[Rfam]
RNA sequence: AUGUAACUAAGGGGCUGCGGCUUGUUAAAAGUACUAUAAAUAUAGGAAAGGAACAGUCGCCGAAAUAUAGUAUAUCUAUAUUGGUAUUAUACUGAACAAGCAUAAUACUGUCAUUAGAAAAUUGCCCAAUUUUCUAAUGGAGCACUUAGUAUACA
Numbered sequence: 001a002u003g004u005a006a007c008u009a010a011g012g013g014g015c016u017g018c019g020g021c022u023u024g025u026u027a028a029a030a031g032u033a034c035u036a037u038a039a040a041u042a043u044a045g046g047a048a049a050g051g052a053a054c055a056g057u058c059g060c061c062g063a064a065a066u067a068u069a070g071u072a073u074a075u076c077u078a079u080a081u082u083g084g085u086a087u088u089a090u091a092c093u094g095a096a097c098a099a100g101c102a103u104a105a106u107a108c109u110g111u112c113a114u115u116a117g118a119a120a121a122u123u124g125c126c127c128a129a130u131u132u133u134c135u136a137a138u139g140g141a142g143c144a145c146u147u148a149g150u151a152u153a154c155a
Stems, first nucleotide, its partner, number of pairs: 006150006017060006024054003034045004064082007083109008092100002111140011
The record is a 155-nucleotide RNA sequence from Keratinibaculum paraultunense, which matches "Lysine riboswitch aptamer" in Rfam.
The family has 47 seed sequences and 3,224 matches in Rfam 15.1.